[Rfam]
RNA sequence: CUCUUAUCCCGAGCUGGUGGAGGGACAGGCCCUAUGAAACCCGGCAACCAUUACUAUUUGUGCAAAUAAAAAGGUAGGAUUCCUUCUAUCUUAUGUUUGAAUUUCUAUAGUGAUAAGGUGCUAACCUGAUGCAAGGCAUUACGCUUUGAGCGAUAAGAG
Dot-bracket structure: ((((((((....(..(((...(((.[[.[)))......))))((((.((((((((((.................................................))))))))..))))))....]..]]((((((.....))))))...))))))))
Numbered sequence: 001c002u003c004u005u006a007u008c009c010c011g012a013g014c015u016g017g018u019g020g021a022g023g024g025a026c027a028g029g030c031c032c033u034a035u036g037a038a039a040c041c042c043g044g045c046a047a048c049c050a051u052u053a054c055u056a057u058u059u060g061u062g063c064a065a066a067u068a069a070a071a072a073g074g075u076a077g078g079a080u081u082c083c084u085u086c087u088a089u090c091u092u093a094u095g096u097u098u099g100a101a102u103u104u105c106u107a108u109a110g111u112g113a114u115a116a117g118g119u120g121c122u123a124a125c126c127u128g129a130u131g132c133a134a135g136g137c138a139u140u141a142c143g144c145u146u147u148g149a150g151c152g153a154u155a156a157g158a159g
Stems, first nucleotide, its partner, number of pairs: 001159008013042001016041003022032003026131002029127001043122004048118002050114008132148006